[Rfam]
A member of the RNA family "Bacterial large subunit ribosomal RNA" from Desulfurispirillum indicum, 587 nucleotides of a longer RNA.

RNA sequence: CCCGCAGCAAGACGGAAAGACCCCGUGCACCUUUACUAUAGCUUGGCAAUGAUACUCGGUGUAGUAUGUGUAGGAUAGGUGGGAGGCGAUGAAGCGUGUACGCCAGUAUGCGUGGAGCCAUCCUUGAAAUACCACCCUUACUGCACUGGCUAUCUAACUUACGCCCCUUAUCGGGGUGAAGGACAUUGUCUGGUGGGUAGUUUGACUGGGGCGGUCGCCUCCGAAAGAGUAACGGAGGCGCGCGAAGGUUCCCUCAGGACGGUUGGAAAUCGUCCAUCGAGUGUAUUGGCAUAAGGGAGCUUGACUGCAAGACCCACAAGUCGAGCAGGUACGAAAGUAGGUCAAAGUGAUCCGGUGGUUCCGCGUGGAAGGGCCAUCGCUCAACGGAUAAAAGGUACGCCGGGGAUAACAGGCUUAUCUCCCCCAAGAGUUCACAUCGACGGGGAGGUUUGGCACCUCGAUGUCGGCUCAUCGCAUCCUGGGGCUGGAGCAGGUCCCAAGGGUAUGGCUGUUCGCCAUUUAAAGCGGUACGCGAGCUGGGUUCAGAACGUCGUGAGACAGUUCGGUCCCUAUCUGCUGUGGGCGCA
Numbered sequence: 001c002c003c004g005c006a007g008c009a010a011g012a013c014g015g016a017a018a019g020a021c022c023c024c025g026u027g028c029a030c031c032u033u034u035a036c037u038a039u040a041g042c043u044u045g046g047c048a049a050u051g052a053u054a055c056u057c058g059g060u061g062u063a064g065u066a067u068g069u070g071u072a073g074g075a076u077a078g079g080u081g082g083g084a085g086g087c088g089a090u091g092a093a094g095c096g097u098g099u100a101c102g103c104c105a106g107u108a109u110g111c112g113u114g115g116a117g118c119c120a121u122c123c124u125u126g127a128a129a130u131a132c133c134a135c136c137c138u139u140a141c142u143g144c145a146c147u148g149g150c151u152a153u154c155u156a157a158c159u160u161a162c163g164c165c166c167c168u169u170a171u172c173g174g175g176g177u178g179a180a181g182g183a184c185a186u187u188g189u190c191u192g193g194u195g196g197g198u199a200g201u202u203u204g205a206c207u208g209g210g211g212c213g214g215u216c217g218c219c220u221c222c223g224a225a226a227g228a229g230u231a232a233c234g235g236a237g238g239c240g241c242g243c244g245a246a247g248g249u250u251c252c253c254u255c256a257g258g259a260c261g262g263u264u265g266g267a268a269a270u271c272g273u274c275c276a277u278c279g280a281g282u283g284u285a286u287u288g289g290c291a292u293a294a295g296g297g298a299g300c301u302u303g304a305c306u307g308c309a310a311g312a313c314c315c316a317c318a319a320g321u322c323g324a325g326c327a328g329g330u331a332c333g334a335a336a337g338u339a340g341g342u343c344a345a346a347g348u349g350a351u352c353c354g355g356u357g358g359u360u361c362c363g364c365g366u367g368g369a370a371g372g373g374c375c376a377u378c379g380c381u382c383a384a385c386g387g388a389u390a391a392a393a394g395g396u397a398c399g400c401c402g403g404g405g406a407u408a409a410c411a412g413g414c415u416u417a418u419c420u421c422c423c424c425c426a427a428g429a430g431u432u433c434a435c436a437u438c439g440a441c442g443g444g445g446a447g448g449u450u451u452g453g454c455a456c457c458u459c460g461a462u463g464u465c466g467g468c469u470c471a472u473c474g475c476a477u478c479c480u481g482g483g484g485c486u487g488g489a490g491c492a493g494g495u496c497c498c499a500a501g502g503g504u505a506u507g508g509c510u511g512u513u514c515g516c517c518a519u520u521u522a523a524a525g526c527g528g529u530a531c532g533c534g535a536g537c538u539g540g541g542u543u544c545a546g547a548a549c550g551u552c553g554u555g556a557g558a559c560a561g562u563u564c565g566g567u568c569c570c571u572a573u574c575u576g577c578u579g580u581g582g583g584c585g586c587a
Base pairs, nucleotide, nucleotide: 001583002582003581004580005579006578007577008576010575011574012573014570015569022404023403024402025401027400028399029396030395031394032393033392035201036200037199038198042193043192045190046189047188048187051154052153053152054151056149057148058147059146060145061144062143063142064141065140066139068137078136079135080134081133082132085119086118087117094113095112096111097110098109099108100107101106158181159180160179162178163177164176165175166174167173204216205215206214207213217239218238219237220236221235222234240385242342243341248300249299250298251297252296253295254280255279257275258274259273260272261271262270281290282289305328306327307326308325311322312321313320330339331338332337353379354378355377356376357375358374359373361372362371413454414453415452417451418448419447420446421445422444423443424442428438429437465540466538467537468536469535470532471529472528473527474526475525478503479502481498482497483496484495485494486493505519506518507517508516509515546564547563548562549561550559551558552557